The record is a 79-nucleotide RNA sequence from Striga hermonthica, which matches "Small nucleolar RNA Z102/R77" in Rfam. Lineage of the source: Eukaryota > Viridiplantae > Streptophytina > eudicotyledons > Striga. A search with the family's covariance model found it, with a score of 55 bits. The family is grouped with related families in Rfam's "SNORD44 clan".
RNA sequence: GAAUGAAAUGACGAUUAGUAUUUUAUUUGAUAGCUGAUAUGAUGGCUAUUUAUCAUGUAUUAGCUCUAGCUGAUCAUUC
Number, nucleotide and partner (000 for none) at each position: 001g000002a078003a077004u076005g075006a000007a000008a000009u000010g000011a000012c000013g000014a000015u000016u000017a000018g000019u000020a000021u000022u000023u000024u000025a000026u000027u000028u000029g049030a000031u000032a047033g046034c045035u044036g000037a000038u000039a000040u000041g000042a000043u000044g035045g034046c033047u032048a000049u029050u000051u000052a000053u000054c000055a000056u000057g000058u000059a000060u000061u000062a000063g000064c000065u000066c000067u000068a000069g000070c000071u000072g000073a000074u000075c005076a004077u003078u002079c000
Gene Ontology terms of the family: nucleolus and RNA processing. The family's consensus secondary structure was predicted with PFOLD.